Shown here is a 266-nucleotide RNA sequence from Bacillus yapensis, a member of the family "T-box leader". The organism belongs to Bacillus, within Bacteria. It is annotated as a cis-regulatory leader.

RNA sequence: AAAAAUGCGAUGAAGAGAAGAGUAAUUUAGAUUAAUUAUUUCCAGAGAGCUCCUGUUUGGUGAAAAGGAGUAGUAAUGAUCUUAAUGAAAAAAGGCUUGGAGCUUUGCACGGAUCUAGGAUGGGAGUCUUAGUGAUACUGUGACGGGAUCUCACGUUAAAGGGAUAGGGUAUAUGCAUAUUGAUUUUCCGUACCCGAAGAGGUUGAUAUGGUAACAUAUCGACAAACUGAGGUGGUACCACGAAGCAGAUAGCUCUCGUCCUCAAG
Numbered sequence: 001a002a003a004a005a006u007g008c009g010a011u012g013a014a015g016a017g018a019a020g021a022g023u024a025a026u027u028u029a030g031a032u033u034a035a036u037u038a039u040u041u042c043c044a045g046a047g048a049g050c051u052c053c054u055g056u057u058u059g060g061u062g063a064a065a066a067g068g069a070g071u072a073g074u075a076a077u078g079a080u081c082u083u084a085a086u087g088a089a090a091a092a093a094g095g096c097u098u099g100g101a102g103c104u105u106u107g108c109a110c111g112g113a114u115c116u117a118g119g120a121u122g123g124g125a126g127u128c129u130u131a132g133u134g135a136u137a138c139u140g141u142g143a144c145g146g147g148a149u150c151u152c153a154c155g156u157u158a159a160a161g162g163g164a165u166a167g168g169g170u171a172u173a174u175g176c177a178u179a180u181u182g183a184u185u186u187u188c189c190g191u192a193c194c195c196g197a198a199g200a201g202g203u204u205g206a207u208a209u210g211g212u213a214a215c216a217u218a219u220c221g222a223c224a225a226a227c228u229g230a231g232g233u234g235g236u237a238c239c240a241c242g243a244a245g246c247a248g249a250u251a252g253c254u255c256u257c258g259u260c261c262u263c264a265a266g
Stems, first nucleotide, its partner, number of pairs: 007103002015098003025086003029082002038074003049071006108142005144155002202223007229263004240259004